[Rfam]
Shown here is a 128-nucleotide RNA from Octodon degus, a member of the family "Small nucleolar RNA SNORA3/SNORA45 family". The members of this family belong to the H/ACA class of snoRNAs which are thought to guide the sites of modification of uridines to pseudouridines. This family includes mouse snoMBI-28 and human homologues ACA3 (SNORA3) and ACA3-2 (SNORA45). The literature on the family includes a 2005 paper in Nucleic Acids Res by Gu et al., "A novel experimental approach for systematic identification of box H/ACA snoRNAs from eukaryotes". Gene Ontology terms of the family: nucleolus and RNA processing. Rfam 15.1 lists 2,080 matches to the family in 639 species. Its Rfam clan is "SNORA3 clan".

RNA sequence: AUCGAGGCUAGCGUCACGCCUUGGGUAUUGGCUGUUGCCUCAGUGUGUUAGAGUCCUCGAAGAAUAACCACUGACCUUAUUCACUGGCUGUGGGCAAUGUGGCACAAUCAGUCACCAGGGUUAAAUUU
Numbered sequence: 001a002u003c004g005a006g007g008c009u010a011g012c013g014u015c016a017c018g019c020c021u022u023g024g025g026u027a028u029u030g031g032c033u034g035u036u037g038c039c040u041c042a043g044u045g046u047g048u049u050a051g052a053g054u055c056c057u058c059g060a061a062g063a064a065u066a067a068c069c070a071c072u073g074a075c076c077u078u079a080u081u082c083a084c085u086g087g088c089u090g091u092g093g094g095c096a097a098u099g100u101g102g103c104a105c106a107a108u109c110a111g112u113c114a115c116c117a118g119g120g121u122u123a124a125a126u127u128u
Stems, first nucleotide, its partner, number of pairs: 002060005007054003013048001015047005021042001024039004072123004076118002083112005089106004
A search with the family's covariance model found it, with a score of 80 bits. The source organism's lineage runs through Eukaryota, Bilateria, Deuterostomia, Eutheria and Octodon.